[Rfam]
RNA: Bacterial large subunit ribosomal RNA, nucleotides 844 to 1282
RNA sequence: CUCUCCGAAAUAGCUUUAGGGCUAGCCUCGAUGUUAAGUCUACUGGAGGUAGAGCACUGAAUGGGUGAUGGCCCCACCUCGGGGUACUGAUCUCAAUCAAACUCCGAAUGCCAGAUAGAUAUAAUCGGGAGUCAGACUGUGGGUGAUAAGGUCCAUGGUCAAAAGGGAAAGAGCCCAGACCGCCAGCUAAGGCCCCCAAGUGUCCGUUAAGUGGAAAAGGAUGUGGAGAUGCACAGACAACUAGGAGGUUGGCUUAGAAGCAGCCAUCCUUUAAAGAGUGCGUAAUAGCUCACUAGUCGAGUGACUCUGCGCCGAAAAUGUACCGGGGCUAAACGGACCGCCGAAGCUGCGGAUUGACUUUAGAGUCAGUGGUAGGAGAGCGUUCUAACAGCGGUGAAGCAGUACCGGAAGGAGCUGUGGAGCGGUUAGAAGUGAGAAU
Dot-bracket structure: ((((((....(((((....))))).(((((((....((((((((((.....(((...(((.((((....((((((.....))))).)....)))).)))..)).).....)))).))))).).)))))).)...((((((((((......))))))))))....(((......)))...((((.(((...(((......(.((((((...........((..((((((.(((.......(((((.(((..(((.........)))..)))(...)(...((......)).).)))))...))).)))))).))...................))))))))))...)))))))(((((((....)))))))....))))))(.(((((((.((......(((((.((....)).)))))...)).)))))))..).....